[Rfam]
RNA sequence: ACCGUUAUCGGUCUCCGAGCCCGUCACCCUAAAAGGGUGUACCUCAAGGAUGGCGGGCCGGCAGGGUUUCGCUGGAAACGGCGGGGCCUCCCUUGUGGAAAGGAGAUGCGUCGAAAUUG
Number, nucleotide and partner (000 for none) at each position: 001a000002c000003c113004g112005u000006u110007a000008u000009c000010g000011g107012u106013c105014u104015c103016c102017g000018a000019g058020c057021c056022c055023g054024u053025c052026a051027c000028c049029c048030u000031a000032a000033a000034a044035g043036g042037g000038u000039g000040u000041a000042c036043c035044u034045c000046a000047a000048g029049g028050a000051u026052g025053g024054c023055g022056g021057g020058c019059c000060g000061g000062c000063a000064g089065g088066g087067u086068u085069u084070c083071g082072c081073u080074g079075g000076a000077a000078a000079c074080g073081g072082c071083g070084g069085g068086g067087c066088c065089u064090c098091c097092c000093u000094u000095g000096u000097g091098g090099a000100a000101a000102g016103g015104a014105g013106a012107u011108g000109c000110g006111u000112c004113g003114a000115a000116a000117u000118u000119g000
Rfam assigns this 119-nucleotide RNA from Syntrophotalea acetylenica to the family "Molybdenum/Tungsten riboswitch aptamer (Moco RNA motif)". The base pairs follow the family's consensus structure, which is taken from published work.